[Rfam]
RNA sequence: GGAUAACCAAUUUGUAAGUCGCUCUGGAUAAGAGCGUCUUCUAAAUGACUUAAA
Numbered sequence: 001g002g003a004u005a006a007c008c009a010a011u012u013u014g015u016a017a018g019u020c021g022c023u024c025u026g027g028a029u030a031a032g033a034g035c036g037u038c039u040u041c042u043a044a045a046u047g048a049c050u051u052a053a054a
Base pairs, nucleotide, nucleotide: 013043014041016039020036021035022034023033024032025031
Dot-bracket structure: ............((.(...((((((.....))))))..).).)...........